[Rfam]
RNA sequence: AUUCGUCUUCGGGGCAGGGUGUAAUUCCCGACCGGCGGUAAUGAAUGAUUUCAUUCUAAGCCCGCGAGCCUGUUGUUUGGGCAGGAUUUGGUGAGAUUCCAAAGCCGACAGUAUAGUCUGGAUGGGAGGAGAUGAAG
Numbered sequence: 001a002u003u004c005g006u007c008u009u010c011g012g013g014g015c016a017g018g019g020u021g022u023a024a025u026u027c028c029c030g031a032c033c034g035g036c037g038g039u040a041a042u043g044a045a046u047g048a049u050u051u052c053a054u055u056c057u058a059a060g061c062c063c064g065c066g067a068g069c070c071u072g073u074u075g076u077u078u079g080g081g082c083a084g085g086a087u088u089u090g091g092u093g094a095g096a097u098u099c100c101a102a103a104g105c106c107g108a109c110a111g112u113a114u115a116g117u118c119u120g121g122a123u124g125g126g127a128g129g130a131g132a133u134g135a136a137g
Base pairs, nucleotide, nucleotide: 003135004134005133006132007131008130009129010128017029018028019027031117032116033107034106035065036064037063038062060105061104070081087103088102089101090100091099109120110119111118
This 137-nucleotide sequence from Bacillus sp. SG-1 belongs to the Rfam family "FMN riboswitch aptamer (RFN element)". Rfam's curators put it in the seed alignment.